[Rfam]
A member of the RNA family "Selenocysteine insertion sequence 1" from Mytilus coruscus, 66 nucleotides long. A search with the family's covariance model found it, with a score of 35 bits.

RNA sequence: GACUGUUUAUGACGUCUUUACACUAAAUCCAUUGAUGUUGGAUGUGUAAGGAUUGAUAAUUUAGUC
Numbered sequence: 001g002a003c004u005g006u007u008u009a010u011g012a013c014g015u016c017u018u019u020a021c022a023c024u025a026a027a028u029c030c031a032u033u034g035a036u037g038u039u040g041g042a043u044g045u046g047u048a049a050g051g052a053u054u055g056a057u058a059a060u061u062u063a064g065u066c
Base pairs, nucleotide, nucleotide: 001066002065003064004063005062014053015052016051017050018049019048020047021046022045023044029041030040031039

Lineage of the source: Eukaryota > Eumetazoa > Pteriomorphia > Mytiloidea > Mytilus. By type it is a cis-regulatory element. The base pairs follow the family's consensus structure, which is taken from published work. The incorporation of selenocysteine into a protein sequence is directed by an in-frame UGA codon (usually a stop codon) within the coding region of the mRNA. Selenoprotein mRNAs contain a conserved secondary structure in the 3' UTR that is required for the distinction of UGA stop from UGA selenocysteine. The selenocysteine insertion sequence (SECIS) is around 60 nt in length and adopts a hairpin structure which is sufficiently well-defined and conserved to act as a computational screen for selenoprotein genes.